[Rfam]
Shown here is a 66-nucleotide RNA from Edaphobacter albus, a member of the family "nadA riboswitch". It scores 56 bits against the family's covariance model. The source organism's lineage runs through Bacteria, Pseudomonadati, Terriglobales, Acidobacteriaceae and Edaphobacter. On this family, see Huang et al., RNA 2020: "Structure and ligand binding of the ADP-binding domain of the NAD(+) riboswitch". Rfam classes the family as a small RNA.
RNA sequence: GGUUGCAACAUCCCCGUGGAUUGGGCAAAGGCUCAAGUGAGCCGGAGCAGCGAAUCCACUGCAACU
Numbered sequence: 001g002g003u004u005g006c007a008a009c010a011u012c013c014c015c016g017u018g019g020a021u022u023g024g025g026c027a028a029a030g031g032c033u034c035a036a037g038u039g040a041g042c043c044g045g046a047g048c049a050g051c052g053a054a055u056c057c058a059c060u061g062c063a064a065c066u
Stems, first nucleotide, its partner, number of pairs: 001066007013052001014050001016059007023051001025048002030043005